[Rfam]
RNA sequence: ACGCUGUUUCAGGGCGAGGUGAAAUUCCUCACUGGCGGUAACAGAUCCCCCGAAGCAACCUAGCUUCAUCUGAAGCCCGCAACCCUGCUUGGCCUGGCGGCUAAGCAGACUGAUUUGGUGCAAACCCAAAGCCAACGGUUACAGUCCGGAUGGAAGAGACAGGAG
Numbered sequence: 001a002c003g004c005u006g007u008u009u010c011a012g013g014g015c016g017a018g019g020u021g022a023a024a025u026u027c028c029u030c031a032c033u034g035g036c037g038g039u040a041a042c043a044g045a046u047c048c049c050c051c052g053a054a055g056c057a058a059c060c061u062a063g064c065u066u067c068a069u070c071u072g073a074a075g076c077c078c079g080c081a082a083c084c085c086u087g088c089u090u091g092g093c094c095u096g097g098c099g100g101c102u103a104a105g106c107a108g109a110c111u112g113a114u115u116u117g118g119u120g121c122a123a124a125c126c127c128a129a130a131g132c133c134a135a136c137g138g139u140u141a142c143a144g145u146c147c148g149g150a151u152g153g154a155a156g157a158g159a160c161a162g163g164a165g
Stems, first nucleotide, its partner, number of pairs: 004162007017029003031145002033134002035080004075132002085108004114130005136148003

Record summary
Rfam assigns this 165-nucleotide RNA from Eggerthella sp. CAG:209 to the family "FMN riboswitch aptamer (RFN element)". NCBI's taxonomy places the organism under Bacteria, Bacillati, Eggerthellales, Eggerthellaceae, Eggerthella.